[Rfam]
RNA: 7SK RNA
Organism: Hymenochirus boettgeri
RNA sequence: GGAUGUGAGGCGAUCUGCUUCGACAUCUUUCACCCCCCCCAUUGAUCGCUAGGGUUGAUUCGGCUGAUCUGGUGGCUAGUCGGGUGGUCCCCUUCCUCCCUCACCGCUCCAUGUACGUCCCAGCCGAAUCUCGCUCUUCGGUAUAAGAGGAUGGCUCUCCCCGGUAGACAAGCACCGAUCUUCGGUCCAGGGUAACGAGUAGCUGCUCCCCUGCAGAACCACCUCCAACAAGAUCCAAGGUCCCUGAGAAACGUAGGGUAGUCAAGCUCCAAGUCCCGGCACAUCCAAAUACGCCGCUGCACGUGGCAGUCUGCCCUUCUUU
Dot-bracket structure: (((.((((((.((...(....(((((((..(.((....(((..(((((((...........))).))))))).))...)..)))).))).)..))...))))))...)))........(....((((..........))))(......(((......)))...).......).............................(((.((.((((((........(((......(............))))....)))))).))...)))...................(((.(.(.((((((.....)))))..).).)..)))